[Rfam]
RNA sequence: CAGUGUUACAGCUUUUAGAAUUUGUCUAGCAGGCUUUUCGGUUUUUGCCAGAAAGCCCAU
Numbered sequence: 001c002a003g004u005g006u007u008a009c010a011g012c013u014u015u016u017a018g019a020a021u022u023u024g025u026c027u028a029g030c031a032g033g034c035u036u037u038u039c040g041g042u043u044u045u046u047g048c049c050a051g052a053a054a055g056c057c058c059a060u
Base pairs, nucleotide, nucleotide: 032057033056034055035054036053037052038051040049041048042047